[Rfam]
RNA: Small nucleolar RNA SNORA73 family
Organism: Gallus gallus
RNA sequence: CCAACGAGGGCAUCCGGAGAAGUAGCUCUCUCUCGGCUCUGUCCGUGUGGCGCACGGGAGCGUAGGCCUUCGGGCCCGAGACGUAUAUUCCCCUUCCACAUCGUUGGAGAACAAGCUGGGCCUCGAGCCUGCAGCCUGCAUAUUCCUACUGCUUCUCUGAGCCCUCGGGCAGUGACAGAGGAGAUAAACCAUGCAGGAAACACAU
Dot-bracket structure: ((((((((((((.(((.(((......)))....)))...)))))..((((.....(((((.((...(..........)....)).)..))))...)))).)))))))...........................(((((((..........((((((...(((....))).......)))))).......)))))))........
Numbered sequence: 001c002c003a004a005c006g007a008g009g010g011c012a013u014c015c016g017g018a019g020a021a022g023u024a025g026c027u028c029u030c031u032c033u034c035g036g037c038u039c040u041g042u043c044c045g046u047g048u049g050g051c052g053c054a055c056g057g058g059a060g061c062g063u064a065g066g067c068c069u070u071c072g073g074g075c076c077c078g079a080g081a082c083g084u085a086u087a088u089u090c091c092c093c094u095u096c097c098a099c100a101u102c103g104u105u106g107g108a109g110a111a112c113a114a115g116c117u118g119g120g121c122c123u124c125g126a127g128c129c130u131g132c133a134g135c136c137u138g139c140a141u142a143u144u145c146c147u148a149c150u151g152c153u154u155c156u157c158u159g160a161g162c163c164c165u166c167g168g169g170c171a172g173u174g175a176c177a178g179a180g181g182a183g184a185u186a187a188a189c190c191a192u193g194c195a196g197g198a199a200a201c202a203c204a205u
Stems, first nucleotide, its partner, number of pairs: 001107007008044005014036003018029003047099004056092004060086001062084002067078001135197007152183006161170003